[Rfam]
The record is a 305-nucleotide RNA sequence from Thalictrum thalictroides, which matches "Plant signal recognition particle RNA" in Rfam. The base pairs follow the family's consensus structure, which is taken from published work. Rfam links the family to the GO terms signal recognition particle, endoplasmic reticulum targeting and SRP-dependent cotranslational protein targeting to membrane, signal sequence recognition.

RNA sequence: GCCGAGCUCAGUAACACGGGCUUGUAACUCAUGUGAGGGCAUUAAGGUGAUUGGACUUUGGGCUUUGCUUGAUCUGGUUGGGCUUGUGCUGCACAUACUGACUCGCCCGUUCCAAGUUGGGAGUUGGACUAUGUGUGACAGGCGAAGGCCUGUGCCACUUGGUUCCUAGAGUGGAGGGGACCUCGUCAGGCUGGUUUCACAGAGCAGCGAAAACCUCCCUCUCUUGACAGUGGAAGGAUAACGAGACGGGUGCUCCAUCGGUCCGCUAUGGCCAGAUGGGCCCAGUCCAAAGAACUAUCACUUUU
Numbered sequence: 001g002c003c004g005a006g007c008u009c010a011g012u013a014a015c016a017c018g019g020g021c022u023u024g025u026a027a028c029u030c031a032u033g034u035g036a037g038g039g040c041a042u043u044a045a046g047g048u049g050a051u052u053g054g055a056c057u058u059u060g061g062g063c064u065u066u067g068c069u070u071g072a073u074c075u076g077g078u079u080g081g082g083c084u085u086g087u088g089c090u091g092c093a094c095a096u097a098c099u100g101a102c103u104c105g106c107c108c109g110u111u112c113c114a115a116g117u118u119g120g121g122a123g124u125u126g127g128a129c130u131a132u133g134u135g136u137g138a139c140a141g142g143c144g145a146a147g148g149c150c151u152g153u154g155c156c157a158c159u160u161g162g163u164u165c166c167u168a169g170a171g172u173g174g175a176g177g178g179g180a181c182c183u184c185g186u187c188a189g190g191c192u193g194g195u196u197u198c199a200c201a202g203a204g205c206a207g208c209g210a211a212a213a214c215c216u217c218c219c220u221c222u223c224u225u226g227a228c229a230g231u232g233g234a235a236g237g238a239u240a241a242c243g244a245g246a247c248g249g250g251u252g253c254u255c256c257a258u259c260g261g262u263c264c265g266c267u268a269u270g271g272c273c274a275g276a277u278g279g280g281c282c283c284a285g286u287c288c289a290a291a292g293a294a295c296u297a298u299c300a301c302u303u304u305u
Stems, first nucleotide, its partner, number of pairs: 001040003004023006028037003044304008053295001056292002059289003063285002067281002070279001072277008080264005086258002091253001093251002098249003102245004107237002110235005116228008126165006133158003138153006166171001173218005183210004191202003